[Rfam]
RNA: L31-Actinobacteria ribosomal protein leader
Organism: Streptomyces sp. 303MFCol5.2
RNA sequence: UCGGCUCCGGUUCACGUUGGUCGUAUCCCGCGACAACGACCCGGCGCC
Numbered sequence: 001u002c003g004g005c006u007c008c009g010g011u012u013c014a015c016g017u018u019g020g021u022c023g024u025a026u027c028c029c030g031c032g033a034c035a036a037c038g039a040c041c042c043g044g045c046g047c048c
Stems, first nucleotide, its partner, number of pairs: 003048003007044004015038005021033003
Dot-bracket structure: ..(((.((((....(((((.(((.......))))))))..)))).)))